[Rfam]
RNA: c-di-GMP-I riboswitch aptamer
Organism: Paenibacillus albilobatus
RNA sequence: UUAUAUCUUUGGCACACUAAUCGAAAGAUUAGGUCGCAAAGCCUUGGAGUCUAACAGUCCACGUGACUUAUGAUCGUCCGGUUGCAUUU
Numbered sequence: 001u002u003a004u005a006u007c008u009u010u011g012g013c014a015c016a017c018u019a020a021u022c023g024a025a026a027g028a029u030u031a032g033g034u035c036g037c038a039a040a041g042c043c044u045u046g047g048a049g050u051c052u053a054a055c056a057g058u059c060c061a062c063g064u065g066a067c068u069u070a071u072g073a074u075c076g077u078c079c080g081g082u083u084g085c086a087u088u089u
Base pairs, nucleotide, nucleotide: 012037013036017032018031019030020029021028022027040083041082042081043080046079047078048077049074050073051072056068057067058066059065